[Rfam]
Nucleotides: 100
Base pairs, nucleotide, nucleotide: 003098004097005096006095007094
Number, partner (000 for none) and nucleotide at each position: 001000u002000u003098u004097g005096g006095g007094a008000a009000a010000u011000g012000a013000u014000g015000a016000u017000u018000a019000u020000a021000u022000a023000u024000c025000g026000a027000u028000u029000u030000u031000u032000u033000c034000a035000g036000a037000g038000g039000c040000u041000c042000a043000g044000u045000u046000g047000a048000u049000u050000a051000a052000u053000a054000c055000c056000u057000g058000c059000u060000g061000c062000u063000g064000c065000u066000a067000u068000u069000c070000u071000g072000a073000u074000c075000a076000u077000u078000u079000u080000g081000c082000a083000c084000g085000u086000c087000a088000g089000u090000c091000u092000g093000a094007u095006c096005c097004c098003a099000u100000u

Source information
Shown here is a 100-nucleotide RNA, a member of the family "Small nucleolar RNA Z122". It scores 51 bits against the family's covariance model. A reference for the family is Chen et al. (2003), "The high diversity of snoRNAs in plants: identification and comparative study of 120 snoRNA genes from Oryza sativa", Nucleic Acids Res. Pairs were carried over by alignment from the consensus structure, which was predicted with PFOLD.